Alphaproteobacterial ar14: a 124-nucleotide RNA from Paenirhizobium daejeonense. Rfam links the family to the GO term biological process involved in symbiotic interaction. The organism belongs to Paenirhizobium, within Bacteria. The family's RNA type in Rfam is small RNA.
RNA sequence: CAGUUUCGGCCUGUGCACUCCUCCUCCCAGCACAGUGUCGAUUUGACCAGCGACACUCCUCCUCCCAGUCGCAGGUCUCCCAAAAUGACGCUCACCGGACCUCCUCCCCCGGUGAGCGUUAUUU
Numbered sequence: 001c002a003g004u005u006u007c008g009g010c011c012u013g014u015g016c017a018c019u020c021c022u023c024c025u026c027c028c029a030g031c032a033c034a035g036u037g038u039c040g041a042u043u044u045g046a047c048c049a050g051c052g053a054c055a056c057u058c059c060u061c062c063u064c065c066c067a068g069u070c071g072c073a074g075g076u077c078u079c080c081c082a083a084a085a086u087g088a089c090g091c092u093c094a095c096c097g098g099a100c101c102u103c104c105u106c107c108c109c110c111g112g113u114g115a116g117c118g119u120u121a122u123u124u
Stems, first nucleotide, its partner, number of pairs: 007040003011035006045077004050072005088119011

Smr14C2 was renamed NfeR1 (Nodule Formation Efficiency RNA) highly expressed in salt stress and during the symbiotic interaction on legume roots. It scores 105 bits against the family's covariance model.